[Rfam]
RNA sequence: CGGCGCUUGAGGCUUUUUGCCUCAUGGCUGCGCUUCAGGAAGUUAUGCAGAAAUGUUGUGAGGCAGAAAGAUGAAAGCCCCGAGUCAAUUUUUCAAUUAACCCGAGGCUACACUUACGCAUCAGCAACGUCAGCGUAGCCUCUUACCUGCUGAAAGGCAAGGAAGUAAAG
Numbered sequence: 001c002g003g004c005g006c007u008u009g010a011g012g013c014u015u016u017u018u019g020c021c022u023c024a025u026g027g028c029u030g031c032g033c034u035u036c037a038g039g040a041a042g043u044u045a046u047g048c049a050g051a052a053a054u055g056u057u058g059u060g061a062g063g064c065a066g067a068a069a070g071a072u073g074a075a076a077g078c079c080c081c082g083a084g085u086c087a088a089u090u091u092u093u094c095a096a097u098u099a100a101c102c103c104g105a106g107g108c109u110a111c112a113c114u115u116a117c118g119c120a121u122c123a124g125c126a127a128c129g130u131c132a133g134c135g136u137a138g139c140c141u142c143u144u145a146c147c148u149g150c151u152g153a154a155a156g157g158c159a160a161g162g163a164a165g166u167a168a169a170g
Base pairs, nucleotide, nucleotide: 002080003079005078006077007076008075011072013070014069015068016067017066018065019064020063021062022061023060026057027056082103084101085100087097089095104142105141106140107139108138110136111135113133114132116130117129118128147170148169